RNA: Small nucleolar RNA SNORD45
Organism: Salvator merianae
RNA sequence: GGUCAGUGAUGAAGUUUGACAUACCUGUCUGAAUUUAAAGUUGAUGUGGUUCUAACACACAGCUCUAGAAUUACUCUGAGACCUG
Dot-bracket structure: ((((...........................................................................))))..